[Rfam]
RNA sequence: GCCAAGAAGCGGGGGUACCGCGGCCUUGUGGCCACGGUUGAGAUAGUCCCUUGGAACCUGAUCCGGCUCAUACCGGCGUAGGGAAGCUUCGCAAUGCAGCCG
Numbered sequence: 001g002c003c004a005a006g007a008a009g010c011g012g013g014g015g016u017a018c019c020g021c022g023g024c025c026u027u028g029u030g031g032c033c034a035c036g037g038u039u040g041a042g043a044u045a046g047u048c049c050c051u052u053g054g055a056a057c058c059u060g061a062u063c064c065g066g067c068u069c070a071u072a073c074c075g076g077c078g079u080a081g082g083g084a085a086g087c088u089u090c091g092c093a094a095u096g097c098a099g100c101c102g
Stems, first nucleotide, its partner, number of pairs: 006090005011051004016045001017038004057082004063076004
RNA: TPP riboswitch aptamer (THI element)